[Rfam]
RNA sequence: UGGCCUGAAAUGAUGUUUUAAGUUCAUGUCUAUUCUCUGAGAUGUCUCAUGGAGACAGCCAGAUGCAUUUCUGAUCAGGCUU
Numbered sequence: 001u002g003g004c005c006u007g008a009a010a011u012g013a014u015g016u017u018u019u020a021a022g023u024u025c026a027u028g029u030c031u032a033u034u035c036u037c038u039g040a041g042a043u044g045u046c047u048c049a050u051g052g053a054g055a056c057a058g059c060c061a062g063a064u065g066c067a068u069u070u071c072u073g074a075u076c077a078g079g080c081u082u
Stems, first nucleotide, its partner, number of pairs: 002081004